[Rfam]
RNA sequence: GCGGGGAUGAGUUUGGCUGGUGCUGAAUGCAGCCUUCAAAGCUGUAGCUACUGUUCGGUAGAGAGGAUCGAUUCCUCCUUUCCCGC
Numbered sequence: 001g002c003g004g005g006g007a008u009g010a011g012u013u014u015g016g017c018u019g020g021u022g023c024u025g026a027a028u029g030c031a032g033c034c035u036u037c038a039a040a041g042c043u044g045u046a047g048c049u050a051c052u053g054u055u056c057g058g059u060a061g062a063g064a065g066g067a068u069c070g071a072u073u074c075c076u077c078c079u080u081u082c083c084c085g086c
Stems, first nucleotide, its partner, number of pairs: 001086007009078001012027006028046006048061005063077004